Description
This 82-nucleotide RNA from Richelia sinica belongs to the Rfam family "Photosynthesis regulatory RNA1". Its family is annotated with regulation of translation and regulation of photosynthesis in the Gene Ontology. It scores 43 bits against the family's covariance model. For this family Rfam cites "The small regulatory RNA SyR1/PsrR1 controls photosynthetic functions in cyanobacteria" (Georg et al., Plant Cell, 2014). By type it is a small RNA. Taxonomically the source falls in Richelia sinica (Bacteria, Bacillati, Nostocaceae, Richelia). The family has 13 seed sequences and 92 matches in Rfam 15.1.

RNA sequence: AAUAUUUUUUGACUUCGGUAACUGGAUCUAAUUGUCAUAUAGAAUUCUCCUGUCAGCCUCGGUAAAAAUAACCGAGGUUUUU
Numbered sequence: 001a002a003u004a005u006u007u008u009u010u011g012a013c014u015u016c017g018g019u020a021a022c023u024g025g026a027u028c029u030a031a032u033u034g035u036c037a038u039a040u041a042g043a044a045u046u047c048u049c050c051u052g053u054c055a056g057c058c059u060c061g062g063u064a065a066a067a068a069u070a071a072c073c074g075a076g077g078u079u080u081u082u
Stems, first nucleotide, its partner, number of pairs: 056078008